Rfam assigns this 109-nucleotide sequence from Capsicum annuum to the family "Small nucleolar RNA Z103". The family's consensus secondary structure was predicted with PFOLD. Lineage of the source: Eukaryota > Viridiplantae > Pentapetalae > Solanales > Capsicum. It scores 66 bits against the family's covariance model.
[Rfam]
RNA sequence: UUGGAUGUGAUGAUUAUUUCCCCAGAUCAUGAUCGAAGCUGAAAUUACCGAGUGCUUUUACUGUAUUUUCUCAUUAGUGGGAAAAUCCAAGCCAAAUAUUUUGAUCCAU
Numbered sequence: 001u002u003g004g005a006u007g008u009g010a011u012g013a014u015u016a017u018u019u020c021c022c023c024a025g026a027u028c029a030u031g032a033u034c035g036a037a038g039c040u041g042a043a044a045u046u047a048c049c050g051a052g053u054g055c056u057u058u059u060a061c062u063g064u065a066u067u068u069u070c071u072c073a074u075u076a077g078u079g080g081g082a083a084a085a086u087c088c089a090a091g092c093c094a095a096a097u098a099u100u101u102u103g104a105u106c107c108a109u
Base pairs, nucleotide, nucleotide: 002108003107004106005105